[Rfam]
RNA sequence: UGCCUUUAUAAUGUGUUGCCCAUUUGUUGCUUUCUACAGUGAAUGUGGUGUCAAAUAAGGCAUUCAGCAAUUUCUUGUAUCGGCCUUAGCAAGGUUCCUCCUCAGUGGCCUUGUCUUAAGUUCUAUACCAAGAACUGUU
Numbered sequence: 001u002g003c004c005u006u007u008a009u010a011a012u013g014u015g016u017u018g019c020c021c022a023u024u025u026g027u028u029g030c031u032u033u034c035u036a037c038a039g040u041g042a043a044u045g046u047g048g049u050g051u052c053a054a055a056u057a058a059g060g061c062a063u064u065c066a067g068c069a070a071u072u073u074c075u076u077g078u079a080u081c082g083g084c085c086u087u088a089g090c091a092a093g094g095u096u097c098c099u100c101c102u103c104a105g106u107g108g109c110c111u112u113g114u115c116u117u118a119a120g121u122u123c124u125a126u127a128c129c130a131a132g133a134a135c136u137g138u139u
Base pairs, nucleotide, nucleotide: 002061003060004059005058006057014053015052017050018049019048020047021045022044023043024042025041026040027039028038074132075131076130077129078127079126080125082123083122088121092117093116094114095113099108